[Rfam]
RNA sequence: ACACGGGAAGGAGGUGGUCCGAGACAUGAAGUCUUUCCGGACGCGUGAGGUGACUGUCCGCUAGUCGCCCGAGCACAUCGGACGGAUUGCUCGAUCCGUUCGCCUGCUCCGCCGGUCCCACCGGCAGGGCGACGAGCGAAUCUCCGGCAGUCACCGCAGCCCGUGGGAGCCGCGACCUCGUCCUUCGCGGCAGGGCCCCCGACAGGGGACCCGGCCCACGGGCUGUUCCCU
Numbered sequence: 001a002c003a004c005g006g007g008a009a010g011g012a013g014g015u016g017g018u019c020c021g022a023g024a025c026a027u028g029a030a031g032u033c034u035u036u037c038c039g040g041a042c043g044c045g046u047g048a049g050g051u052g053a054c055u056g057u058c059c060g061c062u063a064g065u066c067g068c069c070c071g072a073g074c075a076c077a078u079c080g081g082a083c084g085g086a087u088u089g090c091u092c093g094a095u096c097c098g099u100u101c102g103c104c105u106g107c108u109c110c111g112c113c114g115g116u117c118c119c120a121c122c123g124g125c126a127g128g129g130c131g132a133c134g135a136g137c138g139a140a141u142c143u144c145c146g147g148c149a150g151u152c153a154c155c156g157c158a159g160c161c162c163g164u165g166g167g168a169g170c171c172g173c174g175a176c177c178u179c180g181u182c183c184u185u186c187g188c189g190g191c192a193g194g195g196c197c198c199c200c201g202a203c204a205g206g207g208g209a210c211c212c213g214g215c216c217c218a219c220g221g222g223c224u225g226u227u228c229c230c231u
Base pairs, nucleotide, nucleotide: 013058014057015056016055017054018053059138060137061136062135064133065132067130068129069128070127157225158224159223160222161221162220163219164218165217166216167215170190171189172188173187174186175185
Rfam assigns this 231-nucleotide RNA from Cellulomonas hominis to the family "Actinobacteria sRNA Ms_IGR-5". It scores 76 bits against the family's covariance model. The organism belongs to Cellulomonas, within Bacteria. The family's RNA type in Rfam is small RNA.